[Rfam]
RNA sequence: UCUAUUGCGUUGAUCAGGACAGUAAGAAGUUGGUCAUUCCUGGCAGAGAGUAACGGCCCUGGCUGCAAGCCGUUGCAGAAUGCGCUUUUGAAAACCCCCUGAGAGCGGAAAUAUGAACGAGUAAUCUACUACUAUUUCCCGGUUCGCCUCGUUAUUGGCGCCACAAGUGGCCUUUGUUUCAAAGGCAACAUGGGUGGAACCACGAACAGCACGCUUCGUCCCAUGA
Number, nucleotide and partner (000 for none) at each position: 001u000002c000003u000004a000005u000006u000007g106008c105009g000010u000011u000012g000013a000014u000015c101016a100017g099018g098019a000020c000021a000022g000023u000024a000025a089026g088027a087028a086029g085030u084031u000032g000033g000034u000035c000036a000037u000038u077039c000040c075041u000042g000043g000044c000045a000046g000047a000048g000049a000050g000051u000052a074053a073054c072055g071056g070057c069058c000059c000060u000061g000062g000063c000064u000065g000066c000067a000068a000069g057070c056071c055072g054073u053074u052075g040076c000077a038078g000079a000080a000081u000082g000083c000084g030085c029086u028087u027088u026089u025090g000091a000092a000093a000094a000095c000096c000097c000098c018099c017100u016101g015102a000103g000104a000105g008106c007107g000108g138109a137110a136111a135112u134113a133114u000115g000116a000117a000118c000119g000120a000121g000122u000123a000124a000125u000126c000127u000128a000129c000130u000131a000132c000133u113134a112135u111136u110137u109138c108139c000140c151141g150142g149143u000144u000145c000146g000147c000148c000149u142150c141151g140152u000153u000154a000155u000156u000157g000158g000159c000160g000161c000162c000163a000164c000165a000166a000167g000168u000169g000170g186171c185172c184173u183174u182175u181176g180177u000178u000179u000180c176181a175182a174183a173184g172185g171186c170187a000188a000189c000190a000191u223192g222193g221194g220195u000196g000197g000198a000199a000200c000201c000202a219203c218204g217205a216206a215207c000208a000209g000210c000211a000212c000213g000214c000215u206216u205217c204218g203219u202220c194221c193222c192223a191224u000225g000226a000
The record is a 226-nucleotide RNA, which matches "T-box leader" in Rfam. A search with the family's covariance model found it, with a score of 114 bits. The base pairs follow the family's consensus structure, which is taken from published work.